About this RNA
Fumarate/nitrate reductase regulator sRNA: a 106-nucleotide sequence from Sodalis glossinidius. The literature on the family includes a 2010 paper in Mol Microbiol by Durand and Storz, "Reprogramming of anaerobic metabolism by the FnrS small RNA". By type it is a small RNA. The family's consensus secondary structure is taken from published work.

RNA sequence: GCAGGUGAAUGCAACGUCAAGCGAUGGGCGUAUUGUCUUACUUUCUUUUUGAAUUAUUGCAUAGCGUAUUUAAUUCAGAUGAUGCCGGGUGAAUAGCACGGCAUUU
Numbered sequence: 001g002c003a004g005g006u007g008a009a010u011g012c013a014a015c016g017u018c019a020a021g022c023g024a025u026g027g028g029c030g031u032a033u034u035g036u037c038u039u040a041c042u043u044u045c046u047u048u049u050u051g052a053a054u055u056a057u058u059g060c061a062u063a064g065c066g067u068a069u070u071u072a073a074u075u076c077a078g079a080u081g082a083u084g085c086c087g088g089g090u091g092a093a094u095a096g097c098a099c100g101g102c103a104u105u106u
Stems, first nucleotide, its partner, number of pairs: 001036004014031005051076006058066003084102004089097001090095001